[Rfam]
RNA sequence: CAGCCGGUGAAAAUCCGGUCGCGGGAGGGGCCAAGCCCCCGCGCAGCUCGGAUACCUGCGUAUGGCGAAAUUCUGUGCGUAGAAGCGUAUCGACAAAAAGUACCUGUCAAAGACAGAGCAAGCAACUUGUCAGACCGUAACAUGA
Dot-bracket structure: ...................(((((..............))))).......(((((((((((...(......)....))))))....)))))........((..((((.....)))).))..((.............)).......

Shown here is a 145-nucleotide RNA from Paenibacillus sp. 32O-W, a member of the family "Group II catalytic intron D1-D4-4". Group II introns are found in rRNA, tRNA and mRNA of organelles in fungi, plants and protists, and also in mRNA in bacteria. Gene Ontology term of the family: Group II intron splicing. The family has 90 seed sequences and 840 matches in Rfam 15.1.